[Rfam]
RNA sequence: CAGUAUCUUCAGGGCAGGGUGAAAUUCCCGAUCGGCGGUAUAGUCCGCGAGCGCAGCGAUGCGUAGGAUUUGGCAUAGGUUCAAGUCAGGAUUUGGUGAGAUUCCAAAACCGACAGUAUAGUCUGGAUGGAAGAAGAUCAUG
Numbered sequence: 001c002a003g004u005a006u007c008u009u010c011a012g013g014g015c016a017g018g019g020u021g022a023a024a025u026u027c028c029c030g031a032u033c034g035g036c037g038g039u040a041u042a043g044u045c046c047g048c049g050a051g052c053g054c055a056g057c058g059a060u061g062c063g064u065a066g067g068a069u070u071u072g073g074c075a076u077a078g079g080u081u082c083a084a085g086u087c088a089g090g091a092u093u094u095g096g097u098g099a100g101a102u103u104c105c106a107a108a109a110c111c112g113a114c115a116g117u118a119u120a121g122u123c124u125g126g127a128u129g130g131a132a133g134a135a136g137a138u139c140a141u142g
Base pairs, nucleotide, nucleotide: 005138006137007136008135009134010133017029018028019027031122032121033112034111035048036047037046038045043110044109053086092108093107094106095105096104114125115124116123

The family of this 142-nucleotide RNA sequence from Anaerotignum lactatifermentans is "FMN riboswitch aptamer (RFN element)". A search with the family's covariance model found it, with a score of 108 bits. Its family is annotated with FMN binding in the Gene Ontology.